[Rfam]
Shown here is an 84-nucleotide RNA from Theropithecus gelada, a member of the family "mir-548 microRNA precursor family". The family has 11 seed sequences and 3,009 matches in Rfam 15.1.
RNA sequence: UAUUAGGUUGGUGCAAAAGUAAUUGCGGUUUUUGCCAUUACCUUUAAUGGCAGAAACCGCAAUUACUUUUGCACCAACCUAAUA
Numbered sequence: 001u002a003u004u005a006g007g008u009u010g011g012u013g014c015a016a017a018a019g020u021a022a023u024u025g026c027g028g029u030u031u032u033u034g035c036c037a038u039u040a041c042c043u044u045u046a047a048u049g050g051c052a053g054a055a056a057c058c059g060c061a062a063u064u065a066c067u068u069u070u071g072c073a074c075c076a077a078c079c080u081a082a083u084a
Stems, first nucleotide, its partner, number of pairs: 001084040
The family's consensus secondary structure was predicted with WAR. Lineage of the source: Eukaryota > Deuterostomia > Mammalia > Haplorrhini > Theropithecus.